RNA sequence: UCAGAGCACAUACUUCUUUAUGUACCCAUAUGAACAUUCAGUGCUAUGGAAUGUAAAGAAGUAUGUAUUUUG
Numbered sequence: 001u002c003a004g005a006g007c008a009c010a011u012a013c014u015u016c017u018u019u020a021u022g023u024a025c026c027c028a029u030a031u032g033a034a035c036a037u038u039c040a041g042u043g044c045u046a047u048g049g050a051a052u053g054u055a056a057a058g059a060a061g062u063a064u065g066u067a068u069u070u071u072g
Base pairs, nucleotide, nucleotide: 005069006068008066009065010064011063012062013061014060015059016058017057018056019055020054021053022052023051026049027048028047029046030045
Source information: This 72-nucleotide RNA sequence from Mus musculus belongs to the Rfam family "mir-1 microRNA precursor family". The sequence is in the family's curated seed alignment. The family's consensus secondary structure was predicted with RNAalifold. The organism belongs to Mus, within Eukaryota. From the family's description: This family represents the microRNA (miRNA) mir-1 family. miRNAs are transcribed as ~70nt precursors (modelled here) and subsequently processed by the Dicer enzyme to give a ~22nt product.